Rfam assigns this 105-nucleotide RNA sequence from Pectobacterium atrosepticum to the family "Tryptophan operon leader". Rfam classes the family as a cis-regulatory leader. For this family Rfam cites "Attenuation in amino acid biosynthetic operons" (Kolter and Yanofsky, Annu Rev Genet, 1982). Its family is annotated with transcriptional attenuation by ribosome and tryptophan biosynthetic process in the Gene Ontology.
RNA sequence: CAUGGUUGGUGGCGCUCUUCCCUCUCGCGGGUGGACUAAUCACGCAUCGCUGUUAUCACACAUGCAGAUAUUCCCAGGCCCGCUUAACUAAGCGGGCUUUUUAUU
Numbered sequence: 001c002a003u004g005g006u007u008g009g010u011g012g013c014g015c016u017c018u019u020c021c022c023u024c025u026c027g028c029g030g031g032u033g034g035a036c037u038a039a040u041c042a043c044g045c046a047u048c049g050c051u052g053u054u055a056u057c058a059c060a061c062a063u064g065c066a067g068a069u070a071u072u073c074c075c076a077g078g079c080c081c082g083c084u085u086a087a088c089u090a091a092g093c094g095g096g097c098u099u100u101u102u103a104u105u
Stems, first nucleotide, its partner, number of pairs: 009043004014037001016035003020031003077098007084090001